[Rfam]
RNA sequence: AUAUAUUUUAGGCAAAGCAGUCGAAAGACUGUGACGCAAAGCUAUAGGGCCUUUCAAAUGGCAGCCAGUUGCUAUU
Dot-bracket structure: ...........((...((((((....))))))...))..((((...(((((........)))..))))))......

A member of the RNA family "c-di-GMP-I riboswitch aptamer" from Clostridium sp. CAG:7, 76 nucleotides long.
Pairs were carried over by alignment from the consensus structure, which is taken from published work.